Rfam assigns this 165-nucleotide sequence from Bos taurus to the family "U1 spliceosomal RNA". Rfam's curators write: U1 is a small nuclear RNA (snRNA) component of the spliceosome (involved in pre-mRNA splicing). The source organism's lineage runs through Eukaryota, Opisthokonta, Eutheria, Pecora and Bos.
[Rfam]
RNA sequence: AUACUUACCUGGCAGGGGCGAUACCAUGGUCAUGAAGGUGGUUUCCCCAGGGCAAGGCUCAUCUAUUGCACUCCAGAUAUGCUGGCCCCUGCGAUUUCUCCAAGUGUGGGAAACUGGACUGCAUAAUUUGUUGUAGUGGGGGGACUGCAUUGGUGUUUUCCUGUG
Numbered sequence: 001a002u003a004c005u006u007a008c009c010u011g012g013c014a015g016g017g018g019c020g021a022u023a024c025c026a027u028g029g030u031c032a033u034g035a036a037g038g039u040g041g042u043u044u045c046c047c048c049a050g051g052g053c054a055a056g057g058c059u060c061a062u063c064u065a066u067u068g069c070a071c072u073c074c075a076g077a078u079a080u081g082c083u084g085g086c087c088c089c090u091g092c093g094a095u096u097u098c099u100c101c102a103a104g105u106g107u108g109g110g111a112a113a114c115u116g117g118a119c120u121g122c123a124u125a126a127u128u129u130g131u132u133g134u135a136g137u138g139g140g141g142g143g144a145c146u147g148c149a150u151u152g153g154u155g156u157u158u159u160c161c162u163g164u165g
Base pairs, nucleotide, nucleotide: 012122013121014120015119016048017047018046020044021043023042024041025040026039027038049090050089051088052087056083057082058081061078062077063076064075092117094115095113096112097111099109100108138164140162141161142160144159147156148155149154
Rfam classes the family as a spliceosomal small nuclear RNA.